[Rfam]
RNA sequence: ACUGAAAUUAUUCGCCGAGUGGUUUUUGCUAAGGCUUAGCUAUGCAAAUCUCACCGUGGCCAGAGCCACCAGGGUUAGUAAGGAAACAAACUAGCCUCCCGACAUUUGGAAAGGUGACAUGCUAACAGAUAAU
Numbered sequence: 001a002c003u004g005a006a007a008u009u010a011u012u013c014g015c016c017g018a019g020u021g022g023u024u025u026u027u028g029c030u031a032a033g034g035c036u037u038a039g040c041u042a043u044g045c046a047a048a049u050c051u052c053a054c055c056g057u058g059g060c061c062a063g064a065g066c067c068a069c070c071a072g073g074g075u076u077a078g079u080a081a082g083g084a085a086a087c088a089a090a091c092u093a094g095c096c097u098c099c100c101g102a103c104a105u106u107u108g109g110a111a112a113g114g115u116g117a118c119a120u121g122c123u124a125a126c127a128g129a130u131a132a133u
Stems, first nucleotide, its partner, number of pairs: 003127002006123001012117005019054004025048005033041003056069005072097008082087001098109002
Description:
Rfam assigns this 133-nucleotide sequence from Thalassotalea agarivorans to the family "Molybdenum/Tungsten riboswitch aptamer (Moco RNA motif)". Taxonomically the source falls in Thalassotalea (Bacteria, Pseudomonadati, Gammaproteobacteria, Colwelliaceae).